Description
The family of this 83-nucleotide RNA sequence from Homo sapiens is "mir-1299 microRNA precursor family". The base pairs follow the family's consensus structure, which was predicted with RNAalifold. The sequence is in the family's curated seed alignment. Its family is annotated with miRNA-mediated post-transcriptional gene silencing and RISC complex in the Gene Ontology.
[Rfam]
RNA sequence: CCUCAUGGCAGUGUUCUGGAAUCCUACGUGAGGGACAAUCAUUCAGACCCACGUAGCAGUGUUCUGGAAUUCUGUGUGAGGGA
Numbered sequence: 001c002c003u004c005a006u007g008g009c010a011g012u013g014u015u016c017u018g019g020a021a022u023c024c025u026a027c028g029u030g031a032g033g034g035a036c037a038a039u040c041a042u043u044c045a046g047a048c049c050c051a052c053g054u055a056g057c058a059g060u061g062u063u064c065u066g067g068a069a070u071u072c073u074g075u076g077u078g079a080g081g082g083a
Stems, first nucleotide, its partner, number of pairs: 001081007009074003013070010024059002027056001028054003032050003